This 81-nucleotide sequence from Zea mays belongs to the Rfam family "Small nucleolar RNA J33".
A reference for the family is Chen et al. (2003), "The high diversity of snoRNAs in plants: identification and comparative study of 120 snoRNA genes from Oryza sativa", Nucleic Acids Res.
A search with the family's covariance model found it, with a score of 90 bits.
The family has 5 seed sequences and 831 matches in Rfam 15.1.
The organism belongs to Zea, within Eukaryota.
[Rfam]
RNA sequence: CUGUUAGGGGAAUGAUGUACUACCACAGAGCUCUCAAGAUGCUUGCUUUUCUUGAUACCGCCUCCGAGGUAGACAUCACAG
Dot-bracket structure: ((((.(.....................................................................).))))